This 77-nucleotide sequence from Rhodoplanes elegans belongs to the Rfam family "Makes More Granules Regulator RNA (mmgR)". By type it is a small RNA. Taxonomically the source falls in Rhodoplanes (Bacteria, Pseudomonadati, Pseudomonadota, Nitrobacteraceae).
RNA sequence: UACCGCCGCCCUCCUUGGGCGUUUCCUCCCUAGACUUGGGCCGCCGGCACCCGCUGGCGGCCUUUUUUUUGUGGCUA
Numbered sequence: 001u002a003c004c005g006c007c008g009c010c011c012u013c014c015u016u017g018g019g020c021g022u023u024u025c026c027u028c029c030c031u032a033g034a035c036u037u038g039g040g041c042c043g044c045c046g047g048c049a050c051c052c053g054c055u056g057g058c059g060g061c062c063u064u065u066u067u068u069u070u071g072u073g074g075c076u077a
Stems, first nucleotide, its partner, number of pairs: 008020004039062009